RNA: MIR390 microRNA precursor family
RNA sequence: AUGGAGAAUCUGUAAAGCUCAGGAGGGAUAGCGCCAUGUGCUACUCAAGAUCCAUCUUUUCAUAGCACACAUACACUUGUGUACUUGGCGCUAUCUAUCCUGAGUUUCAUGGCUUCUUCCU
Numbered sequence: 001a002u003g004g005a006g007a008a009u010c011u012g013u014a015a016a017g018c019u020c021a022g023g024a025g026g027g028a029u030a031g032c033g034c035c036a037u038g039u040g041c042u043a044c045u046c047a048a049g050a051u052c053c054a055u056c057u058u059u060u061c062a063u064a065g066c067a068c069a070c071a072u073a074c075a076c077u078u079g080u081g082u083a084c085u086u087g088g089c090g091c092u093a094u095c096u097a098u099c100c101u102g103a104g105u106u107u108c109a110u111g112g113c114u115u116c117u118u119c120c121u
Stems, first nucleotide, its partner, number of pairs: 010112001016106009026096010